[Rfam]
RNA sequence: ACAGCUGUAAUUAGUCAGUUUUCUGUCCUGUCCACACAGAAAACUGUCUAAUUACAGUUGU
Numbered sequence: 001a002c003a004g005c006u007g008u009a010a011u012u013a014g015u016c017a018g019u020u021u022u023c024u025g026u027c028c029u030g031u032c033c034a035c036a037c038a039g040a041a042a043a044c045u046g047u048c049u050a051a052u053u054a055c056a057g058u059u060g061u
Base pairs, nucleotide, nucleotide: 001061002060003059004058005057006056007055008054009053010052011051012050013049014048018044019043020042021041022040023039024038025037026036
Background
mir-1537 microRNA precursor family: a 61-nucleotide RNA sequence from Pongo pygmaeus. Gene Ontology terms of the family: miRNA-mediated post-transcriptional gene silencing and RISC complex. Pairs were carried over by alignment from the consensus structure, which was predicted with RNAalifold. The source organism's lineage runs through Eukaryota, Bilateria, Simiiformes, Hominidae and Pongo.